[Rfam]
RNA sequence: CGCGGCCCGGCUCAUCCCCCCCGAGCCGGACCGUCGACGGCCCCCGCUCCCCCCCAGCGGGGGCCGUCUCCA
Dot-bracket structure: .(.((.(((((((.........))))))).))..)((((((((((((.........))))))))))))....
Numbered sequence: 001c002g003c004g005g006c007c008c009g010g011c012u013c014a015u016c017c018c019c020c021c022c023g024a025g026c027c028g029g030a031c032c033g034u035c036g037a038c039g040g041c042c043c044c045c046g047c048u049c050c051c052c053c054c055c056a057g058c059g060g061g062g063g064c065c066g067u068c069u070c071c072a
Stems, first nucleotide, its partner, number of pairs: 002035001004032002007029007036068012

This 72-nucleotide RNA from Kineococcus radiotolerans belongs to the Rfam family "6C RNA". The base pairs follow the family's consensus structure, which is taken from published work. For this family Rfam cites "Identification of 22 candidate structured RNAs in bacteria using the CMfinder comparative genomics pipeline" (Weinberg et al., Nucleic Acids Res, 2007).